[Rfam]
RNA sequence: AUUCGGCACCUUUCAUGCGGAUCGUCCGGCACGUACCUGCCGGUGAAGGGACAGCAACAU
Dot-bracket structure: ........(((((((..........((((((......)))))))))))))..........
Numbered sequence: 001a002u003u004c005g006g007c008a009c010c011u012u013u014c015a016u017g018c019g020g021a022u023c024g025u026c027c028g029g030c031a032c033g034u035a036c037c038u039g040c041c042g043g044u045g046a047a048g049g050g051a052c053a054g055c056a057a058c059a060u
Stems, first nucleotide, its partner, number of pairs: 009050007026043006

The family of this 60-nucleotide RNA from Actinomyces sp. HMT897 is "msiK RNA". The base pairs follow the family's consensus structure, which is taken from published work. Taxonomically the source falls in Actinomyces (Bacteria, Actinomycetota, Actinomycetes, Actinomycetaceae). The family's RNA type in Rfam is cis-regulatory element.